[Rfam]
RNA sequence: CCGCCCGUCGCUACUACCGAUUGAAUGAUUUAGUGAGGUCUUCGGACUGGCGGUAAUCCCUACCGACUUGUCGGUAUCGAUGAACGCUGGAAAGAUGACCAAACUUGAUCAUUUAGAGGAAGUAAAAGUCGUAACAAGGUUUCCGUAGGUGAACCUGCGGAAGGAUCAUUA
Numbered sequence: 001c002c003g004c005c006c007g008u009c010g011c012u013a014c015u016a017c018c019g020a021u022u023g024a025a026u027g028a029u030u031u032a033g034u035g036a037g038g039u040c041u042u043c044g045g046a047c048u049g050g051c052g053g054u055a056a057u058c059c060c061u062a063c064c065g066a067c068u069u070g071u072c073g074g075u076a077u078c079g080a081u082g083a084a085c086g087c088u089g090g091a092a093a094g095a096u097g098a099c100c101a102a103a104c105u106u107g108a109u110c111a112u113u114u115a116g117a118g119g120a121a122g123u124a125a126a127a128g129u130c131g132u133a134a135c136a137a138g139g140u141u142u143c144c145g146u147a148g149g150u151g152a153a154c155c156u157g158c159g160g161a162a163g164g165a166u167c168a169u170u171a
Base pairs, nucleotide, nucleotide: 001138003135006131007130009128012124013123014122015121017119018118021115023114024113025112026111027110028109029108030107032105033104034103037100038099039098040097042095043094047090048089049088050087051086052085054083056081057080061076062075063074064073065072140163141162142161143160144159145158146157147156148155149154
This 171-nucleotide part of an RNA from Apolygus lucorum belongs to the Rfam family "Eukaryotic small subunit ribosomal RNA".
Its Rfam clan is "SSU clan".
NCBI's taxonomy places the organism under Eukaryota, Ecdysozoa, Panarthropoda, Mirinae, Apolygus.